[Rfam]
RNA: Actino-pnp RNA
Organism: Propionibacterium sp. oral taxon 192
RNA sequence: GUUGGUCCUCGGUAGUGGCAAGCGGGUCAUCGCAGGACGAUACCCCGCUGGCCUCGAUCGAAGACCGGC
Numbered sequence: 001g002u003u004g005g006u007c008c009u010c011g012g013u014a015g016u017g018g019c020a021a022g023c024g025g026g027u028c029a030u031c032g033c034a035g036g037a038c039g040a041u042a043c044c045c046c047g048c049u050g051g052c053c054u055c056g057a058u059c060g061a062a063g064a065c066c067g068g069c
Stems, first nucleotide, its partner, number of pairs: 001069007009061005017053003021049006029041004